[Rfam]
Nucleotides: 083
Stems, first nucleotide, its partner, number of pairs: 012037002017032006040077004047073002049069003056063002
Number, partner (000 for none) and nucleotide at each position: 001000g002000g003000u004000a005000c006000a007000u008000a009000a010000g011000a012037g013036c014000a015000a016000a017032c018031u019030u020029g021028g022027u023000g024000a025000a026000a027022g028021c029020c030019a031018a032017g033000g034000a035000c036013g037012c038000a039000a040077a041076g042075c043074u044000a045000a046000a047073g048072g049069g050068a051067c052000u053000a054000a055000u056063g057062u058000g059000u060000a061000a062057a063056c064000a065000a066000u067051g068050u069049c070000a071000g072048c073047c074043a075042g076041c077040u078000g079000c080000c081000g082000a083000a